[Rfam]
RNA sequence: UGCGACACCCAUCAAAAGGGUAGUUCACCAUUCCGGAGCUACUUUCCCAUAUUCCGAAUUC
Numbered sequence: 001u002g003c004g005a006c007a008c009c010c011a012u013c014a015a016a017a018g019g020g021u022a023g024u025u026c027a028c029c030a031u032u033c034c035g036g037a038g039c040u041a042c043u044u045u046c047c048c049a050u051a052u053u054c055c056g057a058a059u060u061c
Stems, first nucleotide, its partner, number of pairs: 017045010
RNA: Plastid-psbN 5UTR RNA